[Rfam]
RNA sequence: AUAAAUGCAGUGAAGAGAAGAGUAAAUAAAAUGAAUUUUUCACAGAGAGCUCCAUGUAGCUGAAAAGGAGUAAAAAUUCUUUAUUGAACCAAGCCUCUGAGCAGCACAUCAGAACCUAUUAUUAGGGGAUGGUGUGACGGGAGCUCCCGUUAUAGAGCUAUGGUAUAAGCAUGAAUUAGAAUGCAGUACCUAAUAAGGUUAGUAUGGUGACAUAUUAACAAACUAGGGUGGCACCGCGAUGAUAAAUCUCGUCCCUAAG
Numbered sequence: 001a002u003a004a005a006u007g008c009a010g011u012g013a014a015g016a017g018a019a020g021a022g023u024a025a026a027u028a029a030a031a032u033g034a035a036u037u038u039u040u041c042a043c044a045g046a047g048a049g050c051u052c053c054a055u056g057u058a059g060c061u062g063a064a065a066a067g068g069a070g071u072a073a074a075a076a077u078u079c080u081u082u083a084u085u086g087a088a089c090c091a092a093g094c095c096u097c098u099g100a101g102c103a104g105c106a107c108a109u110c111a112g113a114a115c116c117u118a119u120u121a122u123u124a125g126g127g128g129a130u131g132g133u134g135u136g137a138c139g140g141g142a143g144c145u146c147c148c149g150u151u152a153u154a155g156a157g158c159u160a161u162g163g164u165a166u167a168a169g170c171a172u173g174a175a176u177u178a179g180a181a182u183g184c185a186g187u188a189c190c191u192a193a194u195a196a197g198g199u200u201a202g203u204a205u206g207g208u209g210a211c212a213u214a215u216u217a218a219c220a221a222a223c224u225a226g227g228g229u230g231g232c233a234c235c236g237c238g239a240u241g242a243u244a245a246a247u248c249u250c251g252u253c254c255c256u257a258a259g
Base pairs, nucleotide, nucleotide: 007102008101015097016096017095025085026084027083028082029081030080038074039073040072049071050070051069052068053067105136106135107134108133109132110131111130138149139148140147198219199218200217201216202215203214204213225256226255227254228253236252237251238250239249
Dot-bracket structure: ......((......(((.......((((((.......(((........(((((.............)))))))).....)))))).........)))...))..(((((((..................))))))).(((......)))................................................(((((((........))))))).....((((.......((((.........))))))))...